Rfam assigns this 376-nucleotide RNA sequence from Caenimonas aquaedulcis to the family "transfer-messenger RNA". Rfam's curators write: Bacterial tmRNA, also known as 10Sa RNA or SsrA, is named for its dual tRNA and mRNA-like properties. Its role is to liberate the mRNA from a stalled ribosome. Its family is annotated with RNA catabolic process in the Gene Ontology. The family's consensus secondary structure is taken from published work. It is annotated as a non-coding RNA gene.
RNA sequence: GGGGCUGCACUGGUUUCGACGUGGGUUCGGACGCGUGGCAGGGCAUGCCGAGCUGAAUGUGCUCGUAAAACUGAUUCAAAAAAGUAACUGCAAACGACUCUACGUUCGCACUCGCCGCUUAAUUGCCGGUGAGCUUUGCAACAGCAGGCCUAUGGGCUGGGUGAGGUUCCCUUCGGGGGGCCGAGCUGCAAAGAAACCUUCAUAGGCUGGUUUCCCGCCGGGUCACUUGGCGGGGAACGAGACAAUAGGUGACUGGCGUCCUGUGCAGCGUGCCGCUGCGCGGCACAGGAAGCGAGAUCCAAACCAGACGGCUACGCAUGUAGAACUGUACGAAGAAGGCUUGCGGACGCGGGUUCAAUUCCCGCCAGCUCCACCA
Numbered sequence: 001g002g003g004g005c006u007g008c009a010c011u012g013g014u015u016u017c018g019a020c021g022u023g024g025g026u027u028c029g030g031a032c033g034c035g036u037g038g039c040a041g042g043g044c045a046u047g048c049c050g051a052g053c054u055g056a057a058u059g060u061g062c063u064c065g066u067a068a069a070a071c072u073g074a075u076u077c078a079a080a081a082a083a084g085u086a087a088c089u090g091c092a093a094a095c096g097a098c099u100c101u102a103c104g105u106u107c108g109c110a111c112u113c114g115c116c117g118c119u120u121a122a123u124u125g126c127c128g129g130u131g132a133g134c135u136u137u138g139c140a141a142c143a144g145c146a147g148g149c150c151u152a153u154g155g156g157c158u159g160g161g162u163g164a165g166g167u168u169c170c171c172u173u174c175g176g177g178g179g180g181c182c183g184a185g186c187u188g189c190a191a192a193g194a195a196a197c198c199u200u201c202a203u204a205g206g207c208u209g210g211u212u213u214c215c216c217g218c219c220g221g222g223u224c225a226c227u228u229g230g231c232g233g234g235g236a237a238c239g240a241g242a243c244a245a246u247a248g249g250u251g252a253c254u255g256g257c258g259u260c261c262u263g264u265g266c267a268g269c270g271u272g273c274c275g276c277u278g279c280g281c282g283g284c285a286c287a288g289g290a291a292g293c294g295a296g297a298u299c300c301a302a303a304c305c306a307g308a309c310g311g312c313u314a315c316g317c318a319u320g321u322a323g324a325a326c327u328g329u330a331c332g333a334a335g336a337a338g339g340c341u342u343g344c345g346g347a348c349g350c351g352g353g354u355u356c357a358a359u360u361c362c363c364g365c366c367a368g369c370u371c372c373a374c375c376a
Base pairs, nucleotide, nucleotide: 001372002371003370004369005368006367007366020345021344022343023342024341025340026339027338034332035331036330038329039328040327041326044320045319046318047317048316049065050064051063052062053061054078055077056076057075058074111133112132113131114130115129116128117127135192136191137190138189139188140187142159143158144157145156148207149206150205151204152203153202154201210238211237212236213235214234215233216232217231218230221254222253223252224251225250226249256293257292259290260289261288262287263286264285265284268281269280270279272312273311274310275309278304349365350364351363352362353361